[Rfam]
RNA sequence: UGGCACCCAACCUGGAGGCUGGAUACUGGGGGCACAUCGUGAGGGAGGACGGAAAAAGGAAGGAGUGCACUCGCUAAAUCUCAAGCAAUUUGGAGACGCGCCACAGGAGCCUGCUGCGACCAAUCAAAGGUAAGUUGUGCCGUCCGAUCAUGGGGCAAGGAUUAAGCCAGCAUCAGAUUUAUGUUACGCAGUUGAGGGAGGCUCUCAAGGCAAGAGGAGUAAAGGUUAGGACUGUUGAUUUAUUUCAUUUCUUUGAUUUUGUAAAGGACAUUUGUCCCU
Numbered sequence: 001u002g003g004c005a006c007c008c009a010a011c012c013u014g015g016a017g018g019c020u021g022g023a024u025a026c027u028g029g030g031g032g033c034a035c036a037u038c039g040u041g042a043g044g045g046a047g048g049a050c051g052g053a054a055a056a057a058g059g060a061a062g063g064a065g066u067g068c069a070c071u072c073g074c075u076a077a078a079u080c081u082c083a084a085g086c087a088a089u090u091u092g093g094a095g096a097c098g099c100g101c102c103a104c105a106g107g108a109g110c111c112u113g114c115u116g117c118g119a120c121c122a123a124u125c126a127a128a129g130g131u132a133a134g135u136u137g138u139g140c141c142g143u144c145c146g147a148u149c150a151u152g153g154g155g156c157a158a159g160g161a162u163u164a165a166g167c168c169a170g171c172a173u174c175a176g177a178u179u180u181a182u183g184u185u186a187c188g189c190a191g192u193u194g195a196g197g198g199a200g201g202c203u204c205u206c207a208a209g210g211c212a213a214g215a216g217g218a219g220u221a222a223a224g225g226u227u228a229g230g231a232c233u234g235u236u237g238a239u240u241u242a243u244u245u246c247a248u249u250u251c252u253u254u255g256a257u258u259u260u261g262u263a264a265a266g267g268a269c270a271u272u273u274g275u276c277c278c279u
Base pairs, nucleotide, nucleotide: 006032007031008030013025014024037049038048040046085131086130090127091126096124098121102118104116105115106114138157139156140155143154144153145152146151164205166202167201168200214254215253216252217251218250219249223241224240225239226238227237228236264279266277267276268275269274
RNA: Mason-Pfizer monkey virus packaging signal
Organism: Nannospalax galili